RNA sequence: UUUCCGAAGGGGUAAACCCAGGGUAACUUGGGGACACAAAGCUACGGAUCCUGUAAAUACAGGACAGCCGGGUUGGCGAG
Dot-bracket structure: ...........((...((((((....))))))...))..((((.(((.((((((....))))))...)))))))......
RNA: c-di-GMP-I riboswitch aptamer